[Rfam]
RNA sequence: AAUCCCAACGGCAAUGGAGCUCGCCAAAACCGCCUGCUAGUGAUUCUUUCCUAACGUUAACUAAAACACUAAAAGGCUGAUGGCUCCUACUUUUCU
Dot-bracket structure: .........[[[...((((((.]]]......((((......................................))))....)))))).........
RNA: Fluoride riboswitch aptamer (crcB RNA motif)
Organism: Kamptonema sp. PCC 6506